RNA sequence: GCGUCCCAGCUGGCGGAAUCCCCGAGCUCACGAUGUGUCCCUGCAAUAGGCUGGGCGCGUGCGCCCGCGUCCGUGUGGGCGCAAAGUCGACAGCCGUCGCACACAGGGAGCUCACCAUG
Numbered sequence: 001g002c003g004u005c006c007c008a009g010c011u012g013g014c015g016g017a018a019u020c021c022c023c024g025a026g027c028u029c030a031c032g033a034u035g036u037g038u039c040c041c042u043g044c045a046a047u048a049g050g051c052u053g054g055g056c057g058c059g060u061g062c063g064c065c066c067g068c069g070u071c072c073g074u075g076u077g078g079g080c081g082c083a084a085a086g087u088c089g090a091c092a093g094c095c096g097u098c099g100c101a102c103a104c105a106g107g108g109a110g111c112u113c114a115c116c117a118u119g
Base pairs, nucleotide, nucleotide: 060083061082062081063080065078066077067076068075086100087099089098090097091096